[Rfam]
Annotation: MIR162_1 microRNA precursor family: a 114-nucleotide sequence from Microthlaspi erraticum. Taxonomically the source falls in Microthlaspi (Eukaryota, Spermatophyta, Gunneridae, malvids). Its Rfam clan is "MIR167 microRNA precursor clan". For this family Rfam cites "MicroRNAs in plants" (Reinhart et al., Genes Dev, 2002). The family's consensus secondary structure was predicted with RNAalifold. Its family is annotated with RISC complex and miRNA-mediated post-transcriptional gene silencing in the Gene Ontology.
RNA sequence: GUGAAAAUCGCUGGAGGCAGCGGUUCAUCGAUCUCUUCCUGGGAAUGUUUCUUGUUGGAAAGAAAUCAAAAAGCAUGAACAGAUCGAUAAACCUCUGCAUCCAGCGUUGGCCUC
Numbered sequence: 001g002u003g004a005a006a007a008u009c010g011c012u013g014g015a016g017g018c019a020g021c022g023g024u025u026c027a028u029c030g031a032u033c034u035c036u037u038c039c040u041g042g043g044a045a046u047g048u049u050u051c052u053u054g055u056u057g058g059a060a061a062g063a064a065a066u067c068a069a070a071a072a073g074c075a076u077g078a079a080c081a082g083a084u085c086g087a088u089a090a091a092c093c094u095c096u097g098c099a100u101c102c103a104g105c106g107u108u109g110g111c112c113u114c
Stems, first nucleotide, its partner, number of pairs: 013102003018097003022093004027088007036079003